[Rfam]
RNA sequence: UCAGGUGGUGUCGUAGCAGCACGGAAUGGUUUGUGGGUUACUCUGAGAUGCAGGCCGUACCGUGCUGCCGCAAUAAAGCCUGA
Numbered sequence: 001u002c003a004g005g006u007g008g009u010g011u012c013g014u015a016g017c018a019g020c021a022c023g024g025a026a027u028g029g030u031u032u033g034u035g036g037g038u039u040a041c042u043c044u045g046a047g048a049u050g051c052a053g054g055c056c057g058u059a060c061c062g063u064g065c066u067g068c069c070g071c072a073a074u075a076a077a078g079c080c081u082g083a
Stems, first nucleotide, its partner, number of pairs: 001083006013071002016068009026058010
The record is an 83-nucleotide RNA sequence from Nothobranchius furzeri, which matches "mir-15 microRNA precursor family" in Rfam. The family has 164 seed sequences and 2,045 matches in Rfam 15.1. Rfam describes the family as follows. This family represents the related mir-15a and mir-15b sequences. In humans miR-15a and miR-16 are clustered within 0.5 kb at 13q14. On this family, see Lagos-Quintana et al., Science 2001: "Identification of novel genes coding for small expressed RNAs". The base pairs follow the family's consensus structure, which was predicted with RNAalifold. NCBI's taxonomy places the organism under Eukaryota, Opisthokonta, Teleostei, Nothobranchiidae, Nothobranchius.